[Rfam]
RNA sequence: UGCUGUAUGAAGUAGAAGGAAAGGUGUUCUGGACGCGAGUUCGAUUCUCGCCAUCUCCACCAUAAGCGUAUUGCCUGGUAUGAGUGCCUAUUAGGCGUAAUCAGAGUCCAAUAAGUAGUACGCUUAUGAUGGGGAUGUCAAGGUUUCGACAGGGCAAUGAGUACAGAUAUGGACAGCACGUCAGGCGAUCGACGUAAAUGAAGCAGAACUAGUAAACGCAAACGAUAGCGAUUACAACUUGGCUCUUGCUGCCUAA
Dot-bracket structure: (((((........(..........(((.(((...(((((.......)))))(((((((........................................................................)))))))............))).)))...........).....)))))((((........))))..............................................................